[Rfam]
Iron response element II: a 31-nucleotide sequence.
For this family Rfam cites "Translational regulation of mammalian and Drosophila citric acid cycle enzymes via iron-responsive elements" (Gray et al., Proc Natl Acad Sci U S A, 1996).

RNA sequence: ACCUCAUCUUUGUCAGUGCACAAAAUGGCGC
Dot-bracket structure: .(.((((.((((((...).))))))))).).

Background:
Rfam classes the family as a cis-regulatory element. The family's consensus secondary structure is taken from published work. Rfam describes the family as follows. IRE, TFRC, SLC40A1, SDHB, SLC11A2, CDC42BPA, ACO2, ALAS2_H.SAPIENS, CDC14A, EPAS1, ALAS2, qoxD, Hao1, NDUFS1, transferrin, Aconitate. Rfam links the family to the GO term response to iron ion.